RNA sequence: GCGUCGGGACGACCCGCCGCCGCCCCUCGCAUGCGGGACGGCCCG
Numbered sequence: 001g002c003g004u005c006g007g008g009a010c011g012a013c014c015c016g017c018c019g020c021c022g023c024c025c026c027u028c029g030c031a032u033g034c035g036g037g038a039c040g041g042c043c044c045g
Base pairs, nucleotide, nucleotide: 001020002019003018005016006015007014008013034045035044036043037042

A member of the RNA family "Guanidine-II riboswitch aptamer (mini-ykkC)" from Tepidimonas taiwanensis, 45 nucleotides long. The family's consensus secondary structure is taken from published work. Rfam's curators write: Simpler in structure and has fewer highly conserved nucleotide positions than the ykkC-yxkD leader. Despite this each of its two stem-loop structures directly bind free guanidine. Therefore, mini-ykkC RNA motif represents a distinct class of guanidine-sensing RNAs. Its crystal structure was also determined. The match comes from Rfam's covariance-model search (39 bits).